A member of the RNA family "Bacterial RNase P class A" from Taibaiella sp. KBW10, 363 nucleotides long. The source organism's lineage runs through Bacteria, Chitinophagia, Chitinophagales, Chitinophagaceae and Taibaiella. The family's RNA type in Rfam is ribozyme. The match comes from Rfam's covariance-model search (256 bits).
RNA sequence: CUACAAAUCCGCGCUACCGCUGGAGCUCAGGCUCGGGAGGAAAGUCCGGACAGCACAGUGCAACGCACCACCUAACGGGUGGGUAUGCGGCAACGCAUAACAGCCAGUGCCACAGAAAAUAACCGCUUCUGCUUGCAGAUAGUAAGGGUGAAAAUGUGCGGUAAAAGCGCACGAUAGUAUCAGGCAACUAAUAUUAUGGGUAAACCUUGCGUGCUGAAAUGCCCAAUAGGCAAGCGCUUAGGACUGCACGUCCAAUGCUUGCGGGUAGGCAGAUACAGUCUUGCAGCGAUGUAAGGCGUAGAUAAAUGGUAGCGGCUUCUCUUCGGAGAAGUACAAAAUCCGGCUUACAGGAUUUGUAGUUUU
Dot-bracket structure: ((((((((((((((((((.((.((((....)))).))....[[[.[[[[[((((...[[[[.((((((((((.....)))))(((((((....)))))).)((...(((((...........(((((..(.......)..)))..)).......((((((.......)))))).((((((.((....)).))))))..)))..)))))))))))))...((((......((((((.....((((.]]]]))))...)))))).....))))......((((((((....))))))))..........)))))))........................]]]]]]]].).))))))))))....